[Rfam]
The record is a 546-nucleotide part of an RNA from Aquimarina spongiae, which matches "Bacterial large subunit ribosomal RNA" in Rfam. The source organism's lineage runs through Bacteria, Pseudomonadati, Flavobacteriales, Flavobacteriaceae and Aquimarina. The base pairs follow the family's consensus structure, which is taken from published work. A search with the family's covariance model found it, with a score of 2752 bits.
RNA sequence: UAAUUAAGGGCGUAUGGGGGAUGCCUAGGCUCUCAGAGGCGAAGAAGGACGUGAUAAGCUGCGAUAAGCUACGGGGAGAGGCACAUACUUGUUGAUCCGUGGAUUUCCGAAUGGGGCAACCCGGCAUGUUGAAGACAUGUCACAUCGUAAGAUGGGCGAACGUGGGGAACUGAAACAUCUAAGUACCCAUAGGAGAAGAAAACAAUAGUGAUUCCGUUAGUAGUGGCGAGCGAACGCGGAAUAGCCCAAACCAAAUCGGUUACGGCCGGUUUGGGGUUGUAGGACUACAACAUAGGAUUUGUAAUGAAUUAGAACUGUUUGGAAAGACAGGCCAGAGAAGGUGAUAGCCCUGUAUAAGUAAAGAUCAAAUACUUAGUAGUAUCCUGAGUAGCGCGGGGCACGGGAAACCCUGUGUGAAUUUGGCGGGACCAUCCGCUAAGGCUAAAUACUCCUGAGAGACCGAUAGUGAACCAGUACCGUGAGGGAAAGGUGAAAAGAACCCUGAAUAAGGGAGUGAAAAAGACCCUGAAACCAUACGCUUACAAG
Number, nucleotide and partner (000 for none) at each position: 001u000002a000003a000004u000005u000006a000007a000008g541009g540010g539011c538012g537013u536014a535015u534016g533017g532018g000019g000020g000021a000022u000023g526024c490025c489026u000027a000028g461029g460030c458031u457032c456033u455034c454035a453036g452037a450038g449039g157040c156041g000042a000043a000044g000045a000046a000047g108048g107049a106050c063051g062052u061053g000054a000055u000056a000057a000058g000059c000060u000061g052062c051063g050064a000065u000066a000067a000068g000069c102070u101071a100072c099073g098074g097075g096076g000077a000078g090079a089080g088081g000082c000083a000084c000085a000086u000087a000088c080089u079090u078091g000092u000093u000094g000095a000096u075097c074098c073099g072100u071101g070102g069103a000104u000105u000106u049107c048108c047109g000110a000111a000112u000113g122114g121115g120116g000117c000118a000119a000120c115121c114122c113123g141124g140125c139126a138127u137128g136129u135130u000131g000132a000133a000134g000135a129136c128137a127138u126139g125140u124141c123142a000143c154144a153145u152146c151147g000148u000149a000150a000151g146152a145153u144154g143155g000156g040157c039158g000159a000160a000161c192162g190163u189164g188165g187166g186167g000168a000169a000170c000171u000172g179173a178174a000175a000176c000177a000178u173179c172180u000181a000182a000183g000184u000185a000186c166187c165188c164189a163190u162191a000192g161193g000194a000195g000196a000197a000198g000199a000200a000201a000202a209203c208204a000205a000206u000207a000208g203209u202210g000211a000212u446213u240214c239215c238216g237217u236218u000219a000220g000221u000222a000223g231224u230225g000226g000227c000228g000229a000230g224231c223232g000233a000234a000235c000236g217237c216238g215239g214240a213241a000242u000243a443244g442245c441246c440247c000248a000249a000250a000251c274252c273253a272254a271255a270256u269257c268258g000259g000260u000261u000262a000263c000264g000265g000266c000267c000268g257269g256270u255271u254272u253273g252274g251275g000276g000277u000278u000279g000280u000281a385282g384283g383284a000285c379286u378287a377288c376289a000290a000291c000292a000293u000294a000295g372296g000297a370298u369299u368300u367301g366302u000303a000304a000305u362306g000307a000308a000309u357310u356311a355312g000313a000314a000315c330316u329317g328318u327319u326320u000321g000322g000323a000324a000325a000326g319327a318328c317329a316330g315331g000332c000333c337334a000335g000336a000337g333338a000339a351340g350341g349342u000343g000344a000345u000346a000347g000348c000349c341350c340351u339352g000353u000354a000355u311356a310357a309358g000359u000360a000361a000362a305363g000364a000365u000366c301367a300368a299369a298370u297371a000372c295373u000374u000375a000376g288377u287378a286379g285380u000381a000382u000383c283384c282385u281386g000387a000388g000389u000390a000391g415392c414393g413394c412395g411396g410397g409398g408399c000400a000401c000402g000403g000404g000405a000406a000407a000408c398409c397410c396411u395412g394413u393414g392415u391416g000417a000418a000419u000420u000421u000422g437423g436424c435425g434426g433427g000428a000429c000430c000431a000432u000433c426434c425435g424436c423437u422438a000439a000440g246441g245442c244443u243444a000445a000446a212447u000448a000449c038450u037451c000452c036453u035454g034455a033456g032457a031458g030459a000460c029461c028462g000463a000464u000465a000466g000467u000468g000469a000470a000471c000472c000473a000474g000475u000476a000477c484478c483479g000480u000481g000482a000483g478484g477485g000486a000487a000488a000489g025490g024491u000492g000493a000494a000495a000496a000497g000498a000499a000500c512501c511502c510503u509504g000505a000506a000507u000508a000509a503510g502511g501512g500513a000514g000515u000516g000517a000518a000519a000520a000521a000522g000523a000524c000525c000526c023527u000528g000529a000530a000531a000532c017533c016534a015535u014536a013537c012538g011539c010540u009541u008542a000543c000544a000545a000546g000